[Rfam]
RNA: Purine riboswitch aptamer
RNA sequence: AAAUAUCAACAGAAUAUAACUCGUAUAAUAUCAGGAAUAUGGCCCGAAAGUCUCUACCUAGUAACCGUAAAUUACUAGACUACGAGUGAAAGUGAACCUAGG
Numbered sequence: 001a002a003a004u005a006u007c008a009a010c011a012g013a014a015u016a017u018a019a020c021u022c023g024u025a026u027a028a029u030a031u032c033a034g035g036a037a038u039a040u041g042g043c044c045c046g047a048a049a050g051u052c053u054c055u056a057c058c059u060a061g062u063a064a065c066c067g068u069a070a071a072u073u074a075c076u077a078g079a080c081u082a083c084g085a086g087u088g089a090a091a092g093u094g095a096a097c098c099u100a101g102g
Base pairs, nucleotide, nucleotide: 019087020086021085022084023083024082025081029049031047032046034044035043058078059077060076061075062074063073064072